[Rfam]
RNA: Bacterial small subunit ribosomal RNA, nucleotides 529 to 879
RNA sequence: GGCGUAAAGGGUGCGCAGGUGUCUAGAAAAGCUAGGUGUGAAAGCCUGGGGCUUAACCCCAGAACUGCAUCUAGAACUAACUGGAUAGAGUGUAAGAGAGGAAAAUAGAAUUCCCAGUGUAGAGGUGAAAUUCAUAGAUAUUGGGAGGAAUACCAGAGGCGAAGGCGAUUUUCUGGCUUAUAACUGACACUAAGGCACGAAAGUGUGGGGAGCAAACAGGAUUAGAUACCCUGGUAGUCCAUGCCGUAAACGAUGAGUGUUCGCCCUUGGUCUAUUCUGAUCUGGGGCUCAGCUAACGCGUUAAACACUCCGCCUGGGGAGUACGGUCGCAAGACCGAAACUCAAAGGAAU
Numbered sequence: 001g002g003c004g005u006a007a008a009g010g011g012u013g014c015g016c017a018g019g020u021g022u023c024u025a026g027a028a029a030a031g032c033u034a035g036g037u038g039u040g041a042a043a044g045c046c047u048g049g050g051g052c053u054u055a056a057c058c059c060c061a062g063a064a065c066u067g068c069a070u071c072u073a074g075a076a077c078u079a080a081c082u083g084g085a086u087a088g089a090g091u092g093u094a095a096g097a098g099a100g101g102a103a104a105a106u107a108g109a110a111u112u113c114c115c116a117g118u119g120u121a122g123a124g125g126u127g128a129a130a131u132u133c134a135u136a137g138a139u140a141u142u143g144g145g146a147g148g149a150a151u152a153c154c155a156g157a158g159g160c161g162a163a164g165g166c167g168a169u170u171u172u173c174u175g176g177c178u179u180a181u182a183a184c185u186g187a188c189a190c191u192a193a194g195g196c197a198c199g200a201a202a203g204u205g206u207g208g209g210g211a212g213c214a215a216a217c218a219g220g221a222u223u224a225g226a227u228a229c230c231c232u233g234g235u236a237g238u239c240c241a242u243g244c245c246g247u248a249a250a251c252g253a254u255g256a257g258u259g260u261u262c263g264c265c266c267u268u269g270g271u272c273u274a275u276u277c278u279g280a281u282c283u284g285g286g287g288c289u290c291a292g293c294u295a296a297c298g299c300g301u302u303a304a305a306c307a308c309u310c311c312g313c314c315u316g317g318g319g320a321g322u323a324c325g326g327u328c329g330c331a332a333g334a335c336c337g338a339a340a341c342u343c344a345a346a347g348g349a350a351u
Base pairs, nucleotide, nucleotide: 001314002313003312009311011198012197013196014195018191019190020189022085023084024083025082026081030078031077032074033073034072035071036070037069038068039067040066046062047061048060049059050058051057089185090184091183092181093180094179095178096177100174101173102172103171104170105169106168107151111147112146113145114144115143116142117141118140122133123132124131159166160165203244204243205242206241207240208239212238213237217233218232219231220230255310256309257308258307259306260305263288264287265286266285267284269282270281271280272279292299293298316343317342318341325336326335327334328333